Source information
Rfam assigns this 340-nucleotide RNA sequence from Mycoplasma mycoides to the family "Bacterial RNase P class B". By type it is a ribozyme. From the family's description: Ribonuclease P (RNase P) is a ubiquitous endoribonuclease, found in archaea, bacteria and eukarya as well as chloroplasts and mitochondria. Its best characterised activity is the generation of mature 5'-ends of tRNAs by cleaving the 5'-leader elements of precursor-tRNAs. Cellular RNase Ps are ribonucleoproteins. RNA from bacterial RNase Ps retains its catalytic activity in the absence of the protein subunit, i.e. it is a ribozyme. Isolated eukaryotic and archaeal RNase P RNA has not been shown to retain its catalytic function, but is still essential for the catalytic activity of the holoenzyme. Although the archaeal and eukaryotic holoenzyme s have a much greater protein content than the bacterial ones, the RNA cores from all the three lineages are homologous -- helices corresponding to P1, P2, P3, P4, and P10/11 are common to all cellular RNase P RNAs. Yet, there is considerable sequence variation, particularly among the eukaryotic RNAs. The family's consensus secondary structure is taken from published work.

[Rfam]
RNA sequence: UUUAUUAGUCAAUCGCUGUAUUUGAAAAAGAAUAUAGAGGAAACUCCACGCUUACACAAUCUGUGAUGAUUGUAGUGUUUAUGCUAAAUGAAAAAAUAAAUUUAGGCAGUAAGUAAUUACUGACGGCUUAACUAACCUAAGGCUUUGCUAUGGUGAUGUUAUUAAAGUGCCACAGAGACGAAUAAAGAGAAAUCUUGAAAUGGAACGCGGUAAACCCCAUAAGUAAGAAACUCAAGUUUUGGUAGAGGAAUCUGAUUAAGAGAAUAAGAAUUAAAAUCAGAAGUUAUUAUUAACUAGAUAGAUGAUUGACGCUGAAAAGUACAAAACGUGGGUUAUAGAU
Numbered sequence: 001u002u003u004a005u006u007a008g009u010c011a012a013u014c015g016c017u018g019u020a021u022u023u024g025a026a027a028a029a030g031a032a033u034a035u036a037g038a039g040g041a042a043a044c045u046c047c048a049c050g051c052u053u054a055c056a057c058a059a060u061c062u063g064u065g066a067u068g069a070u071u072g073u074a075g076u077g078u079u080u081a082u083g084c085u086a087a088a089u090g091a092a093a094a095a096a097u098a099a100a101u102u103u104a105g106g107c108a109g110u111a112a113g114u115a116a117u118u119a120c121u122g123a124c125g126g127c128u129u130a131a132c133u134a135a136c137c138u139a140a141g142g143c144u145u146u147g148c149u150a151u152g153g154u155g156a157u158g159u160u161a162u163u164a165a166a167g168u169g170c171c172a173c174a175g176a177g178a179c180g181a182a183u184a185a186a187g188a189g190a191a192a193u194c195u196u197g198a199a200a201u202g203g204a205a206c207g208c209g210g211u212a213a214a215c216c217c218c219a220u221a222a223g224u225a226a227g228a229a230a231c232u233c234a235a236g237u238u239u240u241g242g243u244a245g246a247g248g249a250a251u252c253u254g255a256u257u258a259a260g261a262g263a264a265u266a267a268g269a270a271u272u273a274a275a276a277u278c279a280g281a282a283g284u285u286a287u288u289a290u291u292a293a294c295u296a297g298a299u300a301g302a303u304g305a306u307u308g309a310c311g312c313u314g315a316a317a318a319g320u321a322c323a324a325a326a327c328g329u330g331g332g333u334u335a336u337a338g339a340u
Stems, first nucleotide, its partner, number of pairs: 004340003007336001008310007016037006042334003046331005051227005056073006079222005084105006106124001107122006125217002129161001135154003141149003167215002169211003185196004231247003251281007282295005312319002